Notes
Shown here is an 87-nucleotide RNA sequence from Cnephaeus nilssonii, a member of the family "mir-9195 microRNA precursor family". The match comes from Rfam's covariance-model search (97 bits).
RNA sequence: AGAGGCCUUCCGUGGCUGGGGUGGAAUGCUUGCCUCGUCGCUGUGGCGAUAAAGGAAGCAUUCCGCCAGGCCGCUCACGCAGCCUGC
Numbered sequence: 001a002g003a004g005g006c007c008u009u010c011c012g013u014g015g016c017u018g019g020g021g022u023g024g025a026a027u028g029c030u031u032g033c034c035u036c037g038u039c040g041c042u043g044u045g046g047c048g049a050u051a052a053a054g055g056a057a058g059c060a061u062u063c064c065g066c067c068a069g070g071c072c073g074c075u076c077a078c079g080c081a082g083c084c085u086g087c
Stems, first nucleotide, its partner, number of pairs: 004084003012074006020067012033054001037050005
Annotation:
Rfam links the family to the GO terms RISC complex and miRNA-mediated post-transcriptional gene silencing. Taxonomically the source falls in Cnephaeus (Eukaryota, Teleostomi, Dipnotetrapodomorpha, Tetrapoda).